This 92-nucleotide sequence from Talaromyces rugulosus belongs to the Rfam family "A. fumigatus snoRNA Afu_263". Its family is annotated with nucleolus and RNA processing in the Gene Ontology. The literature on the family includes a 2008 paper in Nucleic Acids Res by Jochl et al., "Small ncRNA transcriptome analysis from Aspergillus fumigatus suggests a novel mechanism for regulation of protein synthesis". The pairing is the family consensus, mapped onto this sequence. Clan: SNORD77 clan. By type it is a C/D-box small nucleolar RNA.
RNA sequence: UUUUAUGAUGAACACCCAUUCAAAGCAUAGUUCACCUGAAGGCCUCGGGCCUGCUGAACGACAAACCUUACCAUCUUUCAACCUAUCUGAUA
Numbered sequence: 001u002u003u004u005a006u007g008a009u010g011a012a013c014a015c016c017c018a019u020u021c022a023a024a025g026c027a028u029a030g031u032u033c034a035c036c037u038g039a040a041g042g043c044c045u046c047g048g049g050c051c052u053g054c055u056g057a058a059c060g061a062c063a064a065a066c067c068u069u070a071c072c073a074u075c076u077u078u079c080a081a082c083c084u085a086u087c088u089g090a091u092a
Stems, first nucleotide, its partner, number of pairs: 006018001010016001030059005040052004